[Rfam]
The family of this 156-nucleotide RNA from Streptomyces jumonjinensis is "Streptomyces sRNA scr5239". Rfam classes the family as a small RNA. For this family Rfam cites "Streptomyces coelicolor sRNA scr5239 inhibits agarase expression by direct base pairing to the dagA coding region" (Vockenhuber and Suess, Microbiology, 2012). Gene Ontology terms of the family: negative regulation of translation and mRNA binding. A search with the family's covariance model found it, with a score of 127 bits.
RNA sequence: CUUCCGCUCUCCCCGCACAGGAGAGUGGAACGAGGCCCCGGUGCUCUCUGCCCUGACUGCGCCCGGUCCUCCCCCACGGCCGCGCGGGACCGCACACCCGCCCGGCCGAGCACUCCGGGCUGCGGUGCCGGACGGGUUGAGGGUCCCGUCAGGCGC
Numbered sequence: 001c002u003u004c005c006g007c008u009c010u011c012c013c014c015g016c017a018c019a020g021g022a023g024a025g026u027g028g029a030a031c032g033a034g035g036c037c038c039c040g041g042u043g044c045u046c047u048c049u050g051c052c053c054u055g056a057c058u059g060c061g062c063c064c065g066g067u068c069c070u071c072c073c074c075c076a077c078g079g080c081c082g083c084g085c086g087g088g089a090c091c092g093c094a095c096a097c098c099c100g101c102c103c104g105g106c107c108g109a110g111c112a113c114u115c116c117g118g119g120c121u122g123c124g125g126u127g128c129c130g131g132a133c134g135g136g137u138u139g140a141g142g143g144u145c146c147c148g149u150c151a152g153g154c155g156c
Base pairs, nucleotide, nucleotide: 003029004028005027006026008024009023010022011021012020032071033070034069035068038065040063041062043060044059045056046055077108078107079106080105081104082103086099087098088097111127112126113125114124116122117121130150132149133148134147135146136145
Dot-bracket structure: ..((((.(((((.......))))).))))..((((..(.((.((((........))..)).)).)..)))).....((((((...(((........)))...))))))..((((.((...)).))))..(.(((((........))))))......